Rfam assigns this 102-nucleotide sequence from Otolemur garnettii to the family "Y RNA". Rfam classes the family as a non-coding RNA gene. The family has 104 seed sequences and 26,986 matches in Rfam 15.1. The match comes from Rfam's covariance-model search (44 bits).
RNA sequence: GGCUGGUCUGAGAGCAGCAGUGCUCACAAUGAACGGAUCGCAACCAGUUACCGAUUCCUUCCUUCUUUCUCCACUCUCACCAGUUCACUUGACUGGCCUUAA
Numbered sequence: 001g002g003c004u005g006g007u008c009u010g011a012g013a014g015c016a017g018c019a020g021u022g023c024u025c026a027c028a029a030u031g032a033a034c035g036g037a038u039c040g041c042a043a044c045c046a047g048u049u050a051c052c053g054a055u056u057c058c059u060u061c062c063u064u065c066u067u068u069c070u071c072c073a074c075u076c077u078c079a080c081c082a083g084u085u086c087a088c089u090u091g092a093c094u095g096g097c098c099u100u101a102a
Stems, first nucleotide, its partner, number of pairs: 001098008010090002014086001017080001020077001022076001028064002032060002
NCBI's taxonomy places the organism under Eukaryota, Craniata, Sarcopterygii, Tetrapoda, Otolemur. On this family, see Van Horn et al., RNA 1995: "Caenorhabditis elegans embryos contain only one major species of Ro RNP". Rfam's curators write: Y RNAs are components of the Ro ribonucleoprotein particle (Ro RNP), in association with Ro60 and La proteins. The Y RNAs and Ro60 and La proteins are well conserved, but the function of the Ro RNP is not known.